RNA sequence: CUUAACUUUUCAACUAAGGAUGGGAAUGAUAGAACCAUGUUUCUUGAAACCAUCCCGUCAAUACUCCUGCAUGCGUCUUGACUGACAGGUCAAGGGGUUUGAAGUACAGGUAGAUUCGGCAGAACGGAGGCUGAAGCCAUUCCUACGGAAAAAGGUAUGCCAAUGGAUAUGCCGCACGGCUGAAAA
Numbered sequence: 001c002u003u004a005a006c007u008u009u010u011c012a013a014c015u016a017a018g019g020a021u022g023g024g025a026a027u028g029a030u031a032g033a034a035c036c037a038u039g040u041u042u043c044u045u046g047a048a049a050c051c052a053u054c055c056c057g058u059c060a061a062u063a064c065u066c067c068u069g070c071a072u073g074c075g076u077c078u079u080g081a082c083u084g085a086c087a088g089g090u091c092a093a094g095g096g097g098u099u100u101g102a103a104g105u106a107c108a109g110g111u112a113g114a115u116u117c118g119g120c121a122g123a124a125c126g127g128a129g130g131c132u133g134a135a136g137c138c139a140u141u142c143c144u145a146c147g148g149a150a151a152a153a154g155g156u157a158u159g160c161c162a163a164u165g166g167a168u169a170u171g172c173c174g175c176a177c178g179g180c181u182g183a184a185a186a
Stems, first nucleotide, its partner, number of pairs: 018055006031045002034042001056178003066110004070101002073098002076095008117174005125165002129161002131148003